[Rfam]
Shown here is a 70-nucleotide part of an RNA from Cadophora malorum, a member of the family "Ascomycota telomerase RNA". The source organism's lineage runs through Eukaryota, Dikarya, Pezizomycotina, leotiomyceta and Cadophora.
RNA sequence: UUCCCAACAGUACUCUGAUACCACCUUCUGAAAGGAAGCGUCGGAAUCAGAACUUAACCCUAAGUAAUUG
Numbered sequence: 001u002u003c004c005c006a007a008c009a010g011u012a013c014u015c016u017g018a019u020a021c022c023a024c025c026u027u028c029u030g031a032a033a034g035g036a037a038g039c040g041u042c043g044g045a046a047u048c049a050g051a052a053c054u055u056a057a058c059c060c061u062a063a064g065u066a067a068u069u070g
Stems, first nucleotide, its partner, number of pairs: 009054003015050004
Its family is annotated with telomerase activity, telomerase catalytic core complex and telomere maintenance via telomerase in the Gene Ontology. The family has 4 seed sequences and 475 matches in Rfam 15.1. By type it is a non-coding RNA gene.